[Rfam]
RNA: Streptococcus RNA 266
RNA sequence: UAGGAGAGUUUUUUUGUUUCUCUGUAAUAAUGCGUUUUGGCUCUGUUUCUACACUCAAAAAAGACUCCAUAAUCUCUGCGGUGGAUUUACCCACUGCAGAAAUUAUAGAGCC
Numbered sequence: 001u002a003g004g005a006g007a008g009u010u011u012u013u014u015u016g017u018u019u020c021u022c023u024g025u026a027a028u029a030a031u032g033c034g035u036u037u038u039g040g041c042u043c044u045g046u047u048u049c050u051a052c053a054c055u056c057a058a059a060a061a062a063g064a065c066u067c068c069a070u071a072a073u074c075u076c077u078g079c080g081g082u083g084g085a086u087u088u089a090c091c092c093a094c095u096g097c098a099g100a101a102a103u104u105a106u107a108g109a110g111c112c
Stems, first nucleotide, its partner, number of pairs: 001026002003023004008017002029044001032041002063112001065110003069106005075100002079096006